The family of this 99-nucleotide sequence from Podarcis muralis is "Vault RNA". It scores 51 bits against the family's covariance model.
RNA sequence: CAGCUAGCUCAGCCCAGCGGUUCCAUCAACCAAAGCAUUGCUUAGAUCCCCUAAUCGCUUCCAGCGGUUUGAGACCCGCAGGCGCUGCCUGGCUUUAAA
Numbered sequence: 001c002a003g004c005u006a007g008c009u010c011a012g013c014c015c016a017g018c019g020g021u022u023c024c025a026u027c028a029a030c031c032a033a034a035g036c037a038u039u040g041c042u043u044a045g046a047u048c049c050c051c052u053a054a055u056c057g058c059u060u061c062c063a064g065c066g067g068u069u070u071g072a073g074a075c076c077c078g079c080a081g082g083c084g085c086u087g088c089c090u091g092g093c094u095u096u097a098a099a
Stems, first nucleotide, its partner, number of pairs: 002094006012083003017079004026072004